[Rfam]
RNA: Actino-pnp RNA
RNA sequence: AUUGGUCCUCGGUAGUGGUUUCCGGGGUUUUACAAGACCCGUGAACUUCGAUCGAAGAUCCAU
Number, nucleotide and partner (000 for none) at each position: 001a063002u062003u000004g060005g059006u058007c057008c000009u055010c054011g053012g052013u051014a000015g000016u000017g047018g046019u045020u044021u043022c000023c041024g040025g039026g000027g038028u037029u036030u035031u000032a000033c000034a000035a030036g029037a028038c027039c025040c024041g023042u000043g021044a020045a019046c018047u017048u000049c000050g000051a013052u012053c011054g010055a009056a000057g007058a006059u005060c004061c000062a002063u001